The family of this 94-nucleotide RNA from Limnoglobus roseus is "Selenocysteine transfer RNA".

RNA sequence: GGGGGUGUUUGCGCGGCUGGUGCCGGCCCCGGUCUUCAAAACCGGUGGGGGCCGUGAACAACGGCCCCGGAGGGUUCGAUUCCCUUCCACUCCC
Numbered sequence: 001g002g003g004g005g006u007g008u009u010u011g012c013g014c015g016g017c018u019g020g021u022g023c024c025g026g027c028c029c030c031g032g033u034c035u036u037c038a039a040a041a042c043c044g045g046u047g048g049g050g051g052c053c054g055u056g057a058a059c060a061a062c063g064g065c066c067c068c069g070g071a072g073g074g075u076u077c078g079a080u081u082c083c084c085u086u087c088c089a090c091u092c093c094c
Stems, first nucleotide, its partner, number of pairs: 001094007011027002014025004029045005048068005071085004
Overview:
Rfam links the family to the GO term triplet codon-amino acid adaptor activity.